Description:
Shown here is a 93-nucleotide RNA sequence from Drosophila virilis, a member of the family "mir-1010 microRNA precursor family". Gene Ontology terms of the family: miRNA-mediated post-transcriptional gene silencing and RISC complex.
RNA sequence: UUGUGCUCAACGGGUAAGUGGUGUAGAUGAAACAAAUUUCACAACAAAUUUUUUGUUGGAUUGUUUCACCUAUCGUUCCAUUUGCAGCUACGA
Numbered sequence: 001u002u003g004u005g006c007u008c009a010a011c012g013g014g015u016a017a018g019u020g021g022u023g024u025a026g027a028u029g030a031a032a033c034a035a036a037u038u039u040c041a042c043a044a045c046a047a048a049u050u051u052u053u054u055g056u057u058g059g060a061u062u063g064u065u066u067c068a069c070c071u072a073u074c075g076u077u078c079c080a081u082u083u084g085c086a087g088c089u090a091c092g093a
Stems, first nucleotide, its partner, number of pairs: 001093005014085008023073004028068008042058006

The sequence is in the family's curated seed alignment.